[Rfam]
RNA sequence: AUGACCGUACUUGAACAGGAUCUGUUCUAUAGGUCAUACACCUGUCUGUGUUCUUCAACUCAGACAAGUUCCUCAACCCAGACGAAGACAUGCAGCCCCGGCGCCUGAGCGCUACGUAUGACCACUGUGGCCGUGCCGCUGGCACGGACGCGUGGUUCUGGAUGAACGUCCCGCCGAGACCAUUCCACCGGCAGGGAUGGUGCUCGGGGCAUUCAGAUGGGUU
Numbered sequence: 001a002u003g004a005c006c007g008u009a010c011u012u013g014a015a016c017a018g019g020a021u022c023u024g025u026u027c028u029a030u031a032g033g034u035c036a037u038a039c040a041c042c043u044g045u046c047u048g049u050g051u052u053c054u055u056c057a058a059c060u061c062a063g064a065c066a067a068g069u070u071c072c073u074c075a076a077c078c079c080a081g082a083c084g085a086a087g088a089c090a091u092g093c094a095g096c097c098c099c100g101g102c103g104c105c106u107g108a109g110c111g112c113u114a115c116g117u118a119u120g121a122c123c124a125c126u127g128u129g130g131c132c133g134u135g136c137c138g139c140u141g142g143c144a145c146g147g148a149c150g151c152g153u154g155g156u157u158c159u160g161g162a163u164g165a166a167c168g169u170c171c172c173g174c175c176g177a178g179a180c181c182a183u184u185c186c187a188c189c190g191g192c193a194g195g196g197a198u199g200g201u202g203c204u205c206g207g208g209g210c211a212u213u214c215a216g217a218u219g220g221g222u223u
Stems, first nucleotide, its partner, number of pairs: 001037002003034001005033002013027006043066003047062002050059003076222005095210006101203005109169003118159001120157006127151003131147005171194001173192003176188001178186001
RNA: Plant small nucleolar RNA U3